[Rfam]
The family of this 154-nucleotide RNA from Amborella trichopoda is "MIR8565 microRNA precursor family". Rfam links the family to the GO terms miRNA-mediated post-transcriptional gene silencing and RISC complex. The base pairs follow the family's consensus structure, which was predicted with RNAalifold. It scores 142 bits against the family's covariance model.

RNA sequence: CCCACACCUAUGUGUGUAGGAUCUCAAACGAUCACCAUUAAAUUUAAUACAAAUCUCUAGAAAAGUUAUCACAUGGGUGUGGGAUUUGACUUUUCUAGAGAUUUGUGUCAAAUUUAAUGGUGAUCAUUUAGGGUUCUACACACAUAAGUGUGAG
Numbered sequence: 001c002c003c004a005c006a007c008c009u010a011u012g013u014g015u016g017u018a019g020g021a022u023c024u025c026a027a028a029c030g031a032u033c034a035c036c037a038u039u040a041a042a043u044u045u046a047a048u049a050c051a052a053a054u055c056u057c058u059a060g061a062a063a064a065g066u067u068a069u070c071a072c073a074u075g076g077g078u079g080u081g082g083g084a085u086u087u088g089a090c091u092u093u094u095c096u097a098g099a100g101a102u103u104u105g106u107g108u109c110a111a112a113u114u115u116a117a118u119g120g121u122g123a124u125c126a127u128u129u130a131g132g133g134u135u136c137u138a139c140a141c142a143c144a145u146a147a148g149u150g151u152g153a154g
Stems, first nucleotide, its partner, number of pairs: 003152005009146005015140010026129003030125003034121012047108022069082005